[Rfam]
RNA sequence: CCCUUAUCUUUUAAAAGUUUCAAGUUGGUCCCUUAUCUUUAUUUUAGGUUUCAAGUUGGGCCCUUCCGUCAAUAUGUUAACUAUUUCCGUUAAAUUUGGACACGCGGCACACUUGGUCAGAUGACACGUGUCCAAAUUUAACGGUAAUAGUAAAAAAAUUGACGGAAGGGACCAACUUGAAACCUAAAAUAAAGAUAAGGGGUCAACUUGAAACUUUUAAAAGAUAAGGGA
Number, nucleotide and partner (000 for none) at each position: 001c000002c229003c228004u227005u226006a225007u224008c223009u000010u000011u000012u000013a000014a000015a000016a000017g000018u000019u000020u000021c000022a000023a208024g207025u206026u000027g204028g203029u202030c000031c200032c199033u198034u197035a196036u195037c194038u193039u192040u191041a190042u189043u188044u000045u186046a185047g184048g000049u000050u000051u000052c000053a000054a000055g000056u000057u000058g000059g000060g000061c000062c000063c000064u000065u000066c000067c000068g000069u000070c000071a000072a000073u000074a000075u000076g000077u000078u000079a000080a000081c000082u000083a000084u000085u000086u000087c000088c000089g000090u000091u000092a000093a000094a000095u000096u000097u000098g000099g000100a000101c000102a000103c000104g000105c000106g000107g000108c000109a000110c000111a000112c000113u000114u000115g000116g000117u000118c000119a000120g000121a000122u000123g000124a000125c000126a000127c000128g000129u000130g000131u000132c000133c000134a000135a000136a000137u000138u000139u000140a000141a000142c000143g000144g000145u000146a000147a000148u000149a000150g000151u000152a000153a000154a000155a000156a000157a000158a000159u000160u000161g000162a000163c000164g000165g000166a000167a000168g000169g000170g000171a000172c000173c000174a000175a000176c000177u000178u000179g000180a000181a000182a000183c000184c047185u046186a045187a000188a043189a042190u041191a040192a039193a038194g037195a036196u035197a034198a033199g032200g031201g000202g029203u028204c027205a000206a025207c024208u023209u000210g000211a000212a000213a000214c000215u000216u000217u000218u000219a000220a000221a000222a000223g008224a007225u006226a005227a004228g003229g002230g000231a000
This 231-nucleotide RNA sequence from Trifolium subterraneum belongs to the Rfam family "MIR2655 microRNA precursor family".
The family has 25 seed sequences and 892 matches in Rfam 15.1.
It scores 132 bits against the family's covariance model.
Lineage of the source: Eukaryota > Streptophytina > Embryophyta > Gunneridae > Trifolium.
Its family is annotated with miRNA-mediated post-transcriptional gene silencing and RISC complex in the Gene Ontology.
Pairs were carried over by alignment from the consensus structure, which was predicted with RNAalifold.